[Rfam]
RNA sequence: CCUCCUGAACCUGUUGCGGCGCAAUGAAAUGGAUGUGGGUGUCGAUACCACCAGCGGUGGCGAUCAGGUGCUCGCCGGAAAUCACUUCGGUGCCUGCGCCGAUCACCAUGCGCGGAUGCACUCCGUCCUGGGUGUGCGGGUUUCCCGAUUUACCCACCGCGACGAUCAGACCGUCCUUGAUUCCGAUGUCGCCCUUCACGACUCCGAUGACGGCAUCCAGAAUCACGGCAUUGGUGAUGACCAGGUCGAGUGCACCCUGCACGGCAUUGGUCGUCGGGUCCUGCGCCAUACCGUCGCGG
Numbered sequence: 001c002c003u004c005c006u007g008a009a010c011c012u013g014u015u016g017c018g019g020c021g022c023a024a025u026g027a028a029a030u031g032g033a034u035g036u037g038g039g040u041g042u043c044g045a046u047a048c049c050a051c052c053a054g055c056g057g058u059g060g061c062g063a064u065c066a067g068g069u070g071c072u073c074g075c076c077g078g079a080a081a082u083c084a085c086u087u088c089g090g091u092g093c094c095u096g097c098g099c100c101g102a103u104c105a106c107c108a109u110g111c112g113c114g115g116a117u118g119c120a121c122u123c124c125g126u127c128c129u130g131g132g133u134g135u136g137c138g139g140g141u142u143u144c145c146c147g148a149u150u151u152a153c154c155c156a157c158c159g160c161g162a163c164g165a166u167c168a169g170a171c172c173g174u175c176c177u178u179g180a181u182u183c184c185g186a187u188g189u190c191g192c193c194c195u196u197c198a199c200g201a202c203u204c205c206g207a208u209g210a211c212g213g214c215a216u217c218c219a220g221a222a223u224c225a226c227g228g229c230a231u232u233g234g235u236g237a238u239g240a241c242c243a244g245g246u247c248g249a250g251u252g253c254a255c256c257c258u259g260c261a262c263g264g265c266a267u268u269g270g271u272c273g274u275c276g277g278g279u280c281c282u283g284c285g286c287c288a289u290a291c292c293g294u295c296g297c298g299g
Base pairs, nucleotide, nucleotide: 003299005298009294012164013163014162015161016160017159018076019075020074021073030053031052032051034050035049037048039046040045057069058068077154078153080150081149082148083147089144090143092141093140094139095138097136098135099134106131107130110128112126113125115123116122172283173282176278177277178276179275180274181273183270184269193228194227196225206218234265239260243258244257245256
RNA: 5' ureB small RNA